RNA sequence: CAGGGGUGCAUUGUAGUUGCAUUGCACGUGUGUCUGAGGAUGUGCAAUGCCCUUUCAGUGCAGCCUUG
Numbered sequence: 001c002a003g004g005g006g007u008g009c010a011u012u013g014u015a016g017u018u019g020c021a022u023u024g025c026a027c028g029u030g031u032g033u034c035u036g037a038g039g040a041u042g043u044g045c046a047a048u049g050c051c052c053u054u055u056c057a058g059u060g061c062a063g064c065c066u067u068g
Base pairs, nucleotide, nucleotide: 001068002067003066004065006064007062008061009060010059011058012057013056015054016053019050021048022047023046024045025044026043027042
mir-33 microRNA precursor family: a 68-nucleotide RNA from Salvator merianae.
Gene Ontology terms of the family: RISC complex and gene silencing by miRNA.
On this family, see Li et al., BMC Genomics 2009: "Direct sequencing and expression analysis of a large number of miRNAs in Aedes aegypti and a multi-species survey of novel mosquito miRNAs".
The match comes from Rfam's covariance-model search (69 bits).